[Rfam]
RNA sequence: CCCUCGUCCAACAGAUCGCCAUUCGAAGCUCACAAACAGAGACACUCUCUGAGCGUCUCAACCCUCUUGCUUUGGGAGAAAGUCCCCGGACACGUCUUCUCCUCACGGAAGGACAUUGCGGAAACGCGCCGCCACAGAAGCACUGCGGCUGACCUCCCGGCCCUGUCCUCAGUCUGUCCUCCUCUGCCCUGCCCCGCCGCUACAUCGGUCAAACUUCCUCGCUCGGAGUCUAGUCGGGUAGCCUUGAGACCUCAUGGACGAAGAUAUGAGUCCGCGCUCUUGGCCGCUUGAUCGGAUCCUCCGUGACAGGAAGGUCUGUUCGAUGGCGGGGUAGCCGUGGGUGUCGAUGCGUGCUGUGGGCAUCAAGGGGCCUGGGAGGGUUUUUCGUCGAGCACGAUAGAUAUGCGAUCGCCUGGCCUCACCAGCUUGGAGUACUCGAUGGGGCUCAUUCUUGGCGCGAGG
Numbered sequence: 001c002c003c004u005c006g007u008c009c010a011a012c013a014g015a016u017c018g019c020c021a022u023u024c025g026a027a028g029c030u031c032a033c034a035a036a037c038a039g040a041g042a043c044a045c046u047c048u049c050u051g052a053g054c055g056u057c058u059c060a061a062c063c064c065u066c067u068u069g070c071u072u073u074g075g076g077a078g079a080a081a082g083u084c085c086c087c088g089g090a091c092a093c094g095u096c097u098u099c100u101c102c103u104c105a106c107g108g109a110a111g112g113a114c115a116u117u118g119c120g121g122a123a124a125c126g127c128g129c130c131g132c133c134a135c136a137g138a139a140g141c142a143c144u145g146c147g148g149c150u151g152a153c154c155u156c157c158c159g160g161c162c163c164u165g166u167c168c169u170c171a172g173u174c175u176g177u178c179c180u181c182c183u184c185u186g187c188c189c190u191g192c193c194c195c196g197c198c199g200c201u202a203c204a205u206c207g208g209u210c211a212a213a214c215u216u217c218c219u220c221g222c223u224c225g226g227a228g229u230c231u232a233g234u235c236g237g238g239u240a241g242c243c244u245u246g247a248g249a250c251c252u253c254a255u256g257g258a259c260g261a262a263g264a265u266a267u268g269a270g271u272c273c274g275c276g277c278u279c280u281u282g283g284c285c286g287c288u289u290g291a292u293c294g295g296a297u298c299c300u301c302c303g304u305g306a307c308a309g310g311a312a313g314g315u316c317u318g319u320u321c322g323a324u325g326g327c328g329g330g331g332u333a334g335c336c337g338u339g340g341g342u343g344u345c346g347a348u349g350c351g352u353g354c355u356g357u358g359g360g361c362a363u364c365a366a367g368g369g370g371c372c373u374g375g376g377a378g379g380g381u382u383u384u385u386c387g388u389c390g391a392g393c394a395c396g397a398u399a400g401a402u403a404u405g406c407g408a409u410c411g412c413c414u415g416g417c418c419u420c421a422c423c424a425g426c427u428u429g430g431a432g433u434a435c436u437c438g439a440u441g442g443g444g445c446u447c448a449u450u451c452u453u454g455g456c457g458c459g460a461g462g
Stems, first nucleotide, its partner, number of pairs: 002462006008455004014410006023076001024074006039059005045053003081446002084444004117128004196209004212382003218378003222375002228371004241361004412430002415427003